RNA sequence: CAUUUAAUGAUGACUAGACCACUGGACAGUCUGAGUUCUGGGAACCAGGUGAUGGAGUGUGUUCUGAGAACAGACUGAGACCG
Numbered sequence: 001c002a003u004u005u006a007a008u009g010a011u012g013a014c015u016a017g018a019c020c021a022c023u024g025g026a027c028a029g030u031c032u033g034a035g036u037u038c039u040g041g042g043a044a045c046c047a048g049g050u051g052a053u054g055g056a057g058u059g060u061g062u063u064c065u066g067a068g069a070a071c072a073g074a075c076u077g078a079g080a081c082c083g
Stems, first nucleotide, its partner, number of pairs: 004080002038048004
Record summary: This 83-nucleotide RNA from Erinaceus europaeus belongs to the Rfam family "small Cajal body-specific RNA 18". scaRNAs are a specific class of small nuclear RNAs which localise to the Cajal bodies and guide the modification of RNA polymerase II transcribed spliceosomal RNAs U1, U2, U4, U5 and U12. NCBI's taxonomy places the organism under Eukaryota, Euteleostomi, Sarcopterygii, Laurasiatheria, Erinaceus. The literature on the family includes a 2002 paper in EMBO J by Darzacq et al., "Cajal body-specific small nuclear RNAs: a novel class of 2'-O-methylation and pseudouridylation guide RNAs". Rfam classes the family as a small Cajal body RNA. The base pairs follow the family's consensus structure, which was predicted with PFOLD. It scores 90 bits against the family's covariance model.